[Rfam]
RNA sequence: UCCCCGAUAGCUCAGUUGGUAGAGCGAGUGGCUGUUAACCACUUUGUCGUAGGUUCAAGUCCUACUCGGGGAG
Numbered sequence: 001u002c003c004c005c006g007a008u009a010g011c012u013c014a015g016u017u018g019g020u021a022g023a024g025c026g027a028g029u030g031g032c033u034g035u036u037a038a039c040c041a042c043u044u045u046g047u048c049g050u051a052g053g054u055u056c057a058a059g060u061c062c063u064a065c066u067c068g069g070g071g072a073g
Stems, first nucleotide, its partner, number of pairs: 001072007010025004027043005049065005
RNA: tRNA